[Rfam]
RNA sequence: GCUCCCUCUCUUUAAUCCUUAGUUCCCAGGUGCAAGUGCCAUCUCAGUGCAGUGCAUCUGGACAAGGAUUCAAAGAUGGUGAGU
Numbered sequence: 001g002c003u004c005c006c007u008c009u010c011u012u013u014a015a016u017c018c019u020u021a022g023u024u025c026c027c028a029g030g031u032g033c034a035a036g037u038g039c040c041a042u043c044u045c046a047g048u049g050c051a052g053u054g055c056a057u058c059u060g061g062a063c064a065a066g067g068a069u070u071c072a073a074a075g076a077u078g079g080u081g082a083g084u
Base pairs, nucleotide, nucleotide: 014070015069016068017067018066019065020064026061027060028059029058030057031056032055037051038050039049